[Rfam]
RNA sequence: CGGAUUUUUAAAGCGCCUGGACUAAUCCGAACGGACAUGGAUUAGUUGACGAGGAGGAGGUUUAUCGAAGUUUCGGCGGAUGCCUCCCGGUUGAUUAGCACAACCGAAAAUUCCUUCUUUAAAUCAUUAAGGCAACUUAAUGGACAAAGGGAAGGGAAUGCGAAUAA
Numbered sequence: 001c002g003g004a005u006u007u008u009u010a011a012a013g014c015g016c017c018u019g020g021a022c023u024a025a026u027c028c029g030a031a032c033g034g035a036c037a038u039g040g041a042u043u044a045g046u047u048g049a050c051g052a053g054g055a056g057g058a059g060g061u062u063u064a065u066c067g068a069a070g071u072u073u074c075g076g077c078g079g080a081u082g083c084c085u086c087c088c089g090g091u092u093g094a095u096u097a098g099c100a101c102a103a104c105c106g107a108a109a110a111u112u113c114c115u116u117c118u119u120u121a122a123a124u125c126a127u128u129a130a131g132g133c134a135a136c137u138u139a140a141u142g143g144a145c146a147a148a149g150g151g152a153a154g155g156g157a158a159u160g161c162g163a164a165u166a167a
Base pairs, nucleotide, nucleotide: 020047021046022045023044024043025042026041027040029038056087057086058085059084060083065076066075067074068073088106089105090104091103092102093101111157112156113155114154115153116152117151125142126141127140128139129138130137131136
This 167-nucleotide RNA from Bacillus sp. V3-13 belongs to the Rfam family "glmS glucosamine-6-phosphate activated ribozyme aptamer". The family's RNA type in Rfam is riboswitch. Taxonomically the source falls in Bacillus (Bacteria, Bacillati, Bacillota, Bacilli). About the family: This entry contains a glucosamine-6-phosphate activated ribozyme that is found in the mRNA for GlmS. GlmS is an enzyme that uses fructose-6-phosphate and glutamine to generate glucosamine-6-phosphate.